[Rfam]
RNA sequence: CUCUUAUCAAGAGUGGUGGAGGGAAAGGCCCUAUGAAACCCAGCAACCUUCAAACACAUGUUGUUUGAAACGGUGCUAAUACCUGCAGAGUGUAAUCUGCGUGAUAAGAG
Numbered sequence: 001c002u003c004u005u006a007u008c009a010a011g012a013g014u015g016g017u018g019g020a021g022g023g024a025a026a027g028g029c030c031c032u033a034u035g036a037a038a039c040c041c042a043g044c045a046a047c048c049u050u051c052a053a054a055c056a057c058a059u060g061u062u063g064u065u066u067g068a069a070a071c072g073g074u075g076c077u078a079a080u081a082c083c084u085g086c087a088g089a090g091u092g093u094a095a096u097c098u099g100c101g102u103g104a105u106a107a108g109a110g
Stems, first nucleotide, its partner, number of pairs: 001110008013041001015040003021031003026084003042077004047073002049069007081102001086099004